[Rfam]
RNA sequence: UUGUGUGUGAGGAGCAAGUGUAAAUCAAAAAGCGCUGAGGGUGGAAACACGGCAACACUCCUGAGCGCUUUUUGCU
Numbered sequence: 001u002u003g004u005g006u007g008u009g010a011g012g013a014g015c016a017a018g019u020g021u022a023a024a025u026c027a028a029a030a031a032g033c034g035c036u037g038a039g040g041g042u043g044g045a046a047a048c049a050c051g052g053c054a055a056c057a058c059u060c061c062u063g064a065g066c067g068c069u070u071u072u073u074g075c076u
Base pairs, nucleotide, nucleotide: 015074028072029071030070031069033067034066038062039061040060041058042057043056
About this RNA: Cyano-1 RNA: a 76-nucleotide RNA from Chlorogloeopsis fritschii. By type it is a small RNA. The base pairs follow the family's consensus structure, which is taken from published work. Rfam 15.1 lists 283 matches to the family in 194 species.